[Rfam]
RNA sequence: AGAAAGUGAAGACUAGAAAUCACUUAAAAAUAACGGGGAAGAACCUGAAAAGCCAAAUUAGUAGGGAAAAUU
Numbered sequence: 001a002g003a004a005a006g007u008g009a010a011g012a013c014u015a016g017a018a019a020u021c022a023c024u025u026a027a028a029a030a031u032a033a034c035g036g037g038g039a040a041g042a043a044c045c046u047g048a049a050a051a052g053c054c055a056a057a058u059u060a061g062u063a064g065g066g067a068a069a070a071u072u
Stems, first nucleotide, its partner, number of pairs: 006023004037054002044066002
RNA: DUF805 RNA
Organism: Flavobacterium sp. ALD4